The record is a 124-nucleotide sequence from Shewanella frigidimarina, which matches "Gammaprotebacteria rimP leader" in Rfam.
[Rfam]
RNA sequence: AAAUAAAUCACAAUUUACAGGUUUUAUAAUAAAAUAACCUCGUGAUUACGGGGUUUUUUGUUAUAUGAACUUUUAAAUAUCCGUGUUAGAUGCGGGUUGCAAUGGGGCUAUUAGCCCUUUUUUU
Numbered sequence: 001a002a003a004u005a006a007a008u009c010a011c012a013a014u015u016u017a018c019a020g021g022u023u024u025u026a027u028a029a030u031a032a033a034a035u036a037a038c039c040u041c042g043u044g045a046u047u048a049c050g051g052g053g054u055u056u057u058u059u060g061u062u063a064u065a066u067g068a069a070c071u072u073u074u075a076a077a078u079a080u081c082c083g084u085g086u087u088a089g090a091u092g093c094g095g096g097u098u099g100c101a102a103u104g105g106g107g108c109u110a111u112u113a114g115c116c117c118u119u120u121u122u123u124u
Stems, first nucleotide, its partner, number of pairs: 034057001036055007105117004
On this family, see Naville and Gautheret, Genome Biol 2010: "Premature terminator analysis sheds light on a hidden world of bacterial transcriptional attenuation". The match comes from Rfam's covariance-model search (54 bits). It is annotated as a cis-regulatory leader.